Shown here is an 89-nucleotide RNA, a member of the family "GA-cis RNA".
[Rfam]
RNA sequence: AUGAGGAGAAACCGUUAUGUGCGAAGUGCAUAAUUGAUAAUUGGUUUCUACGACCUGCCGCCUGGCGCAGGCGAGGGACGUUCAUUACA
Dot-bracket structure: .......((((((..((((((.....))))))..........))))))........(.(.((..((....))..))).)..........
The family's consensus secondary structure is taken from published work.